RNA sequence: AGGCCCAAAGAGAGAGGCAGGGUCUGACCCACAGCCUCUGUGGCAGCUGUUGGUCAGCCAUUGCCUCUCUCUUUCUCUAGC
Number, nucleotide and partner (000 for none) at each position: 001a000002g000003g000004c000005c000006c000007a000008a073009a072010g071011a070012g069013a068014g067015a066016g065017g064018c063019a062020g061021g000022g059023u000024c057025u056026g055027a054028c053029c052030c000031a000032c049033a048034g047035c046036c000037u000038c000039u000040g000041u000042g000043g000044c000045a000046g035047c034048u033049g032050u000051u000052g029053g028054u027055c026056a025057g024058c000059c022060a000061u020062u019063g018064c017065c016066u015067c014068u013069c012070u011071c010072u009073u008074u000075c000076u000077c000078u000079a000080g000081c000
RNA: mir-574 microRNA precursor family
Organism: Myotis brandtii